This 171-nucleotide sequence from delta proteobacterium NaphS2 belongs to the Rfam family "Group II catalytic intron D1-D4-3". Group II introns are found in rRNA, tRNA and mRNA of organelles in fungi, plants and protists, and also in mRNA in bacteria. The base pairs follow the family's consensus structure.
RNA sequence: GUGCCAGAAAUGGGCUGUCCGGAGGAAGCAUGAGGCAGAACCCAUGUACGUAGCGAACAGCGAACCAACUAUAUGGCAGCGGGGAGGAGGUCGAGCAGGCGUGGGAGAGCGAGACCUGAUAUCCGGAGAACCGAAGUGAAGUUGGACGGGAUAUGGGGAGGUGCUGCGUCU
Numbered sequence: 001g002u003g004c005c006a007g008a009a010a011u012g013g014g015c016u017g018u019c020c021g022g023a024g025g026a027a028g029c030a031u032g033a034g035g036c037a038g039a040a041c042c043c044a045u046g047u048a049c050g051u052a053g054c055g056a057a058c059a060g061c062g063a064a065c066c067a068a069c070u071a072u073a074u075g076g077c078a079g080c081g082g083g084g085a086g087g088a089g090g091u092c093g094a095g096c097a098g099g100c101g102u103g104g105g106a107g108a109g110c111g112a113g114a115c116c117u118g119a120u121a122u123c124c125g126g127a128g129a130a131c132c133g134a135a136g137u138g139a140a141g142u143u144g145g146a147c148g149g150g151a152u153a154u155g156g157g158g159a160g161g162u163g164c165u166g167c168g169u170c171u
Base pairs, nucleotide, nucleotide: 001016004013005012006011028171030169031168032167035164036163041157042156043155044154045153046152047150049148050147051146065145066144067143068142069141070140076137077136080133081132082131089116090115091114092113095110096109
The source organism's lineage runs through Bacteria, delta/epsilon subdivisions and Deltaproteobacteria.
Gene Ontology term of the family: Group II intron splicing.